The record is a 193-nucleotide RNA, which matches "manA RNA" in Rfam. manA RNA has been located in 5'UTR regions of genes of mannose or fructose metabolism.
RNA sequence: AGUAAGGACGCUUACGUCGGGUGUGACUGAAUAAACUUACUGGCAUAUAGCUGGUUAAGGUGAUGAGACACAGGUGGUGCUGCUGUCCGCAGGGGCAGAACCGAUGACCAAUCGGGUCUCAGGCAGAGGAGUAAUUCUAAACUGUAGAAAUGCCCUUCUCUUGUUGGUAUACAGGAAUCCAACCACCCUCUUU
Numbered sequence: 001a002g003u004a005a006g007g008a009c010g011c012u013u014a015c016g017u018c019g020g021g022u023g024u025g026a027c028u029g030a031a032u033a034a035a036c037u038u039a040c041u042g043g044c045a046u047a048u049a050g051c052u053g054g055u056u057a058a059g060g061u062g063a064u065g066a067g068a069c070a071c072a073g074g075u076g077g078u079g080c081u082g083c084u085g086u087c088c089g090c091a092g093g094g095g096c097a098g099a100a101c102c103g104a105u106g107a108c109c110a111a112u113c114g115g116g117u118c119u120c121a122g123g124c125a126g127a128g129g130a131g132u133a134a135u136u137c138u139a140a141a142c143u144g145u146a147g148a149a150a151u152g153c154c155c156u157u158c159u160c161u162u163g164u165u166g167g168u169a170u171a172c173a174g175g176a177a178u179c180c181a182a183c184c185a186c187c188c189u190c191u192u193u
Stems, first nucleotide, its partner, number of pairs: 002015005019188005026061002039055006064121006071082003075110004083098006101115005125161007135149003142174004163183005